[Rfam]
RNA: mir-21 microRNA precursor family
Organism: Cyprinus carpio
RNA sequence: UGUCAGGUAGCUUAUCAGACUGGUGUUGGCUGUAAGUCAUAUGGCAACAUCAGUCUAAUAGGCUGCCUGAAA
Numbered sequence: 001u002g003u004c005a006g007g008u009a010g011c012u013u014a015u016c017a018g019a020c021u022g023g024u025g026u027u028g029g030c031u032g033u034a035a036g037u038c039a040u041a042u043g044g045c046a047a048c049a050u051c052a053g054u055c056u057a058a059u060a061g062g063c064u065g066c067c068u069g070a071a072a
Base pairs, nucleotide, nucleotide: 008065009064010063011062012061013060014059015058018055019054020053021052022051024049025048026047027046028045030043